[Rfam]
RNA sequence: UAGUGUUACAGCUCUUUAAGAAUUUGUCUAGCAGGCUUUUGGGUCUUUACUGGAAAGCCCUU
Numbered sequence: 001u002a003g004u005g006u007u008a009c010a011g012c013u014c015u016u017u018a019a020g021a022a023u024u025u026g027u028c029u030a031g032c033a034g035g036c037u038u039u040u041g042g043g044u045c046u047u048u049a050c051u052g053g054a055a056a057g058c059c060c061u062u
Stems, first nucleotide, its partner, number of pairs: 034059007042051003
Notes: The record is a 62-nucleotide RNA sequence from Cebus imitator, which matches "U7 small nuclear RNA" in Rfam. The literature on the family includes a 1987 paper in Science by Mowry and Steitz, "Identification of the human U7 snRNP as one of several factors involved in the 3' end maturation of histone premessenger RNA's". The organism belongs to Cebus, within Eukaryota. The base pairs follow the family's consensus structure, which was predicted with PFOLD. Rfam 15.1 lists 10,439 matches to the family in 569 species.